[Rfam]
RNA: tRNA
Organism: Microlunatus endophyticus
RNA sequence: GCCCUCGUAGCUCAGGGGAUAGAGCAACCGCCUCCUAAGCGGUAGGUCGUGCGUUCGAAUCGCACCGAGGGCG
Number, nucleotide and partner (000 for none) at each position: 001g072002c071003c070004c069005u068006c067007g066008u000009a000010g025011c024012u023013c022014a000015g000016g000017g000018g000019a000020u000021a000022g013023a012024g011025c010026a000027a043028c042029c041030g040031c039032c000033u000034c000035c000036u000037a000038a000039g031040c030041g029042g028043u027044a000045g000046g000047u000048c000049g065050u064051g063052c062053g061054u000055u000056c000057g000058a000059a000060u000061c053062g052063c051064a050065c049066c007067g006068a005069g004070g003071g002072c001073g000